[Rfam]
RNA: mir-190 microRNA precursor family
Organism: Lucilia cuprina
RNA sequence: GUUCCAGUAAGAUAUGUUUGAUAUUCUUGGUUGUUAUAAUUGUACUUUCACCCAGGAAUCAAACAUAUUAUUACUGUGAU
Numbered sequence: 001g002u003u004c005c006a007g008u009a010a011g012a013u014a015u016g017u018u019u020g021a022u023a024u025u026c027u028u029g030g031u032u033g034u035u036a037u038a039a040u041u042g043u044a045c046u047u048u049c050a051c052c053c054a055g056g057a058a059u060c061a062a063a064c065a066u067a068u069u070a071u072u073a074c075u076g077u078g079a080u
Stems, first nucleotide, its partner, number of pairs: 005076005011069012024056002029053002032050002